Small nucleolar RNA SNORD14: a 121-nucleotide RNA sequence from Oryza meridionalis. Lineage of the source: Eukaryota > Liliopsida > Petrosaviidae > Oryzeae > Oryza. Rfam's curators write: U14 small nucleolar RNA (U14 snoRNA) is required for early cleavages of eukaryotic precursor rRNAs. In yeasts, this molecule possess a stem-loop region (known as the Y-domain) which is essential for function. A similar structure, but with a different consensus sequence, is found in plants, but is absent in vertebrates. By type it is a C/D-box small nucleolar RNA.

RNA sequence: GCCCAGUGAUGAUGAAAACAAGGCUUGUUUCUCAUAACAUUCGCAGUUGCCGCCUAAGAGCUUUCGCCUUGCCAGGCUUGAGAGCUGAUGCUGUUCAAUCCUUCCUUGGAUGUCUGAGGGC
Numbered sequence: 001g002c003c004c005a006g007u008g009a010u011g012a013u014g015a016a017a018a019c020a021a022g023g024c025u026u027g028u029u030u031c032u033c034a035u036a037a038c039a040u041u042c043g044c045a046g047u048u049g050c051c052g053c054c055u056a057a058g059a060g061c062u063u064u065c066g067c068c069u070u071g072c073c074a075g076g077c078u079u080g081a082g083a084g085c086u087g088a089u090g091c092u093g094u095u096c097a098a099u100c101c102u103u104c105c106u107u108g109g110a111u112g113u114c115u116g117a118g119g120g121c
Stems, first nucleotide, its partner, number of pairs: 001121004060085006